[Rfam]
RNA sequence: CGCUUGCACGGUGCACUGACCUGCGUGCUUCUCGGAGCGCGCAGGCGUCCACCAUCAGUUUCCGCUGGCGUAGAAGCGGGGCGCGAAGGUAGGCUGCCUGCGGGCGGCUGUUUAUAGCGCGCCUCGAGCUGCGGUGGCGGGGACUGAGGAUGAUGGCAGGCCUCCCUCGGGGGGUGGCCGGUUGGCUGCGGGGCCUGGCGGCGUGGGGUUGUCGAGACAGCGUGCUGACUCGGCGGCGCGCGCAGCCAGCCACCCCGCAUCACCGGUAGCAGCCGCGGAUGGUGGAAAGUGCCGAACAAGCGACCCGUCUUGAAACACGG
Numbered sequence: 001c002g003c004u005u006g007c008a009c010g011g012u013g014c015a016c017u018g019a020c021c022u023g024c025g026u027g028c029u030u031c032u033c034g035g036a037g038c039g040c041g042c043a044g045g046c047g048u049c050c051a052c053c054a055u056c057a058g059u060u061u062c063c064g065c066u067g068g069c070g071u072a073g074a075a076g077c078g079g080g081g082c083g084c085g086a087a088g089g090u091a092g093g094c095u096g097c098c099u100g101c102g103g104g105c106g107g108c109u110g111u112u113u114a115u116a117g118c119g120c121g122c123c124u125c126g127a128g129c130u131g132c133g134g135u136g137g138c139g140g141g142g143a144c145u146g147a148g149g150a151u152g153a154u155g156g157c158a159g160g161c162c163u164c165c166c167u168c169g170g171g172g173g174g175u176g177g178c179c180g181g182u183u184g185g186c187u188g189c190g191g192g193g194c195c196u197g198g199c200g201g202c203g204u205g206g207g208g209u210u211g212u213c214g215a216g217a218c219a220g221c222g223u224g225c226u227g228a229c230u231c232g233g234c235g236g237c238g239c240g241c242g243c244a245g246c247c248a249g250c251c252a253c254c255c256c257g258c259a260u261c262a263c264c265g266g267u268a269g270c271a272g273c274c275g276c277g278g279a280u281g282g283u284g285g286a287a288a289g290u291g292c293c294g295a296a297c298a299a300g301c302g303a304c305c306c307g308u309c310u311u312g313a314a315a316c317a318c319g320g
Base pairs, nucleotide, nucleotide: 001302002301003300004299005298006297009294010293011292012291020045021044022043023042024041025040026039027038028037029036050284051283052282053281054280055279056278305320306319307318308317
The family of this 320-nucleotide part of an RNA from Coemansia brasiliensis is "Eukaryotic large subunit ribosomal RNA". Gene Ontology terms of the family: ribosome and structural constituent of ribosome. Lineage of the source: Eukaryota > Fungi > Kickxellales > Kickxellaceae > Coemansia.